[Rfam]
RNA: HNH endonuclease-associated RNA and ORF (HEARO) RNA
Organism: Butyrivibrio proteoclasticus
RNA sequence: GUCAAUUACCACGCACCUAAAGGUACGUGGCUUGUAAAAGCCACAAGUUGACUAGCCUAAGUUCUUCGAGAACUACGUUACUCACAAAUAUAUAGUUACCUUGGAAUAUUUAGCCUAGUUCCAAGCUCUAAGGUAUGUGAUUAAACAAUCCUGUGUGGUAGGAAUAGUGUUGCAUACAUAAAACUGUGGAAUAACAUUGGCGAAGGCUACCUAAC
Numbered sequence: 001g002u003c004a005a006u007u008a009c010c011a012c013g014c015a016c017c018u019a020a021a022g023g024u025a026c027g028u029g030g031c032u033u034g035u036a037a038a039a040g041c042c043a044c045a046a047g048u049u050g051a052c053u054a055g056c057c058u059a060a061g062u063u064c065u066u067c068g069a070g071a072a073c074u075a076c077g078u079u080a081c082u083c084a085c086a087a088a089u090a091u092a093u094a095g096u097u098a099c100c101u102u103g104g105a106a107u108a109u110u111u112a113g114c115c116u117a118g119u120u121c122c123a124a125g126c127u128c129u130a131a132g133g134u135a136u137g138u139g140a141u142u143a144a145a146c147a148a149u150c151c152u153g154u155g156u157g158g159u160a161g162g163a164a165u166a167g168u169g170u171u172g173c174a175u176a177c178a179u180a181a182a183a184c185u186g187u188g189g190a191a192u193a194a195c196a197u198u199g200g201c202g203a204a205g206g207c208u209a210c211c212u213a214a215c
Stems, first nucleotide, its partner, number of pairs: 001052007010029004016023002030041004055201003059197001060074005077195004082190001084187003096131002100125008110209001115205002133177009145168002148165002151162002